[Rfam]
RNA sequence: GCAGUCACGUGUGCAUAGUUUCUUAUCUAUGUCUAGUAGUAUGGUCUAUUUGCGUUUUGCAUUUAGAUUAUAUUGCUCACAUACAACCUGUGGCCAAAGAGAAAAUUGAGAUCAUAGUACUGGUCUAGUGAUGUCGAAAGACAAUCUUACCACUGGCCAGCCUCCAAACUCUCAGACAGAC
Dot-bracket structure: ............(((..............(((.(.(((((((.(((((..(((.....)))..))))).)))))).).).))).....)))...............(((((........((((((.((((.((((....)))).......)))))))))).........))))).......